[Rfam]
RNA sequence: UCCUCUCUGGUCCAGUGGUUCUAGAUAGUUCAACAUCAGUCAGCUCACUUGUGAAAUGUUUAGGACCACUUGAUCCGGG
Numbered sequence: 001u002c003c004u005c006u007c008u009g010g011u012c013c014a015g016u017g018g019u020u021c022u023a024g025a026u027a028g029u030u031c032a033a034c035a036u037c038a039g040u041c042a043g044c045u046c047a048c049u050u051g052u053g054a055a056a057u058g059u060u061u062a063g064g065a066c067c068a069c070u071u072g073a074u075c076c077g078g079g
Stems, first nucleotide, its partner, number of pairs: 014070006021063002024060004029055004